[Rfam]
Bacterial RNase P class A: a 372-nucleotide RNA from Bifidobacterium coryneforme. Rfam classes the family as a ribozyme. Gene Ontology terms of the family: tRNA processing, ribonuclease P activity and dimeric ribonuclease P complex. A search with the family's covariance model found it, with a score of 303 bits.
RNA sequence: CGAGACCUCUCGAUGGCCGCGGCCAUUCCUCUCGGGAAUGGCUGAGGAACUUCCGGGCUCCAUAGAGCACGAUGGCGGAUAACGUCCGCCCAGGGCGACCUGAGAGAUAGCGCAACAGAGAACAGACCGCCUGCCCCUAGGGCAGGUAAGGGUGAAACGGCGGUGUAAGAGACCACCGGGCCGCUGGUAACAGCGGUCGCACGGCAAGCCUCAUCGGGAGCAAGGCCAAGCAGAAGGCAUUUAGGGGCUGCUCGUCCCGCCUUCGGGUAGGCCGCUAGAGCCUGGCGGUAACGUCAGGUCGAGAUGGAUGGCCAUCCUCCUGUCGGACUCCGACGGAUGACAGAACCCGGGGUAUAUGAGAGGUCUCAUCCC
Numbered sequence: 001c002g003a004g005a006c007c008u009c010u011c012g013a014u015g016g017c018c019g020c021g022g023c024c025a026u027u028c029c030u031c032u033c034g035g036g037a038a039u040g041g042c043u044g045a046g047g048a049a050c051u052u053c054c055g056g057g058c059u060c061c062a063u064a065g066a067g068c069a070c071g072a073u074g075g076c077g078g079a080u081a082a083c084g085u086c087c088g089c090c091c092a093g094g095g096c097g098a099c100c101u102g103a104g105a106g107a108u109a110g111c112g113c114a115a116c117a118g119a120g121a122a123c124a125g126a127c128c129g130c131c132u133g134c135c136c137c138u139a140g141g142g143c144a145g146g147u148a149a150g151g152g153u154g155a156a157a158c159g160g161c162g163g164u165g166u167a168a169g170a171g172a173c174c175a176c177c178g179g180g181c182c183g184c185u186g187g188u189a190a191c192a193g194c195g196g197u198c199g200c201a202c203g204g205c206a207a208g209c210c211u212c213a214u215c216g217g218g219a220g221c222a223a224g225g226c227c228a229a230g231c232a233g234a235a236g237g238c239a240u241u242u243a244g245g246g247g248c249u250g251c252u253c254g255u256c257c258c259g260c261c262u263u264c265g266g267g268u269a270g271g272c273c274g275c276u277a278g279a280g281c282c283u284g285g286c287g288g289u290a291a292c293g294u295c296a297g298g299u300c301g302a303g304a305u306g307g308a309u310g311g312c313c314a315u316c317c318u319c320c321u322g323u324c325g326g327a328c329u330c331c332g333a334c335g336g337a338u339g340a341c342a343g344a345a346c347c348c349g350g351g352g353u354a355u356a357u358g359a360g361a362g363g364u365c366u367c368a369u370c371c372c
Stems, first nucleotide, its partner, number of pairs: 002367009012316007020044009049355001053350005058220004065253004070216005075089005090104001091102004105211002110209002112205002127151002129147008159177002162174003178200001179198008224273004233264006244258005280299008